RNase MRP: a 311-nucleotide sequence from Aphis craccivora. It scores 95 bits against the family's covariance model. The base pairs follow the family's consensus structure, which is taken from published work. The source organism's lineage runs through Eukaryota, Hemiptera, Aphidinae, Aphis and Aphis. RNase MRP is an enzymatically active ribonucleoprotein with two distinct roles in eukaryotes.
[Rfam]
RNA sequence: CUCACCUCCAUUACCUUACCAUCGGGUCUACACUCUUGGCGCGAUAACCAAGCGGUUAUCGAUUGUCCACAUUUCGACCUGAGGAAAGUCCCCGGACCUUCUGCAGAGAGUGUAACCAGCCUAACGGCUGUUCGAUUCCGCCCCAUUCGUCCGCACUUUACGGAGGUGAACGGGACCGCGUUCCAACGGAAACGUACCCGCGAUUCGUAGGACGGGUGUGGGCGAACAAUCGACUGGUCCUAGAUUAACAGAAUGUAAGGGAGGGCUAUCCACGUGGCCCUCAACUUAAUGGGGCUUAUCAGCGGAAGUGA
Numbered sequence: 001c002u003c004a005c006c007u008c009c010a011u012u013a014c015c016u017u018a019c020c021a022u023c024g025g026g027u028c029u030a031c032a033c034u035c036u037u038g039g040c041g042c043g044a045u046a047a048c049c050a051a052g053c054g055g056u057u058a059u060c061g062a063u064u065g066u067c068c069a070c071a072u073u074u075c076g077a078c079c080u081g082a083g084g085a086a087a088g089u090c091c092c093c094g095g096a097c098c099u100u101c102u103g104c105a106g107a108g109a110g111u112g113u114a115a116c117c118a119g120c121c122u123a124a125c126g127g128c129u130g131u132u133c134g135a136u137u138c139c140g141c142c143c144c145a146u147u148c149g150u151c152c153g154c155a156c157u158u159u160a161c162g163g164a165g166g167u168g169a170a171c172g173g174g175a176c177c178g179c180g181u182u183c184c185a186a187c188g189g190a191a192a193c194g195u196a197c198c199c200g201c202g203a204u205u206c207g208u209a210g211g212a213c214g215g216g217u218g219u220g221g222g223c224g225a226a227c228a229a230u231c232g233a234c235u236g237g238u239c240c241u242a243g244a245u246u247a248a249c250a251g252a253a254u255g256u257a258a259g260g261g262a263g264g265g266c267u268a269u270c271c272a273c274g275u276g277g278c279c280c281u282c283a284a285c286u287u288a289a290u291g292g293g294g295c296u297u298a299u300c301a302g303c304g305g306a307a308g309u310g311a
Stems, first nucleotide, its partner, number of pairs: 002311004007306003011302001014260006022082007047057001049055001086297003090294004102114004115132001117130004134227001136225001140223003144220003150216004161207004262281006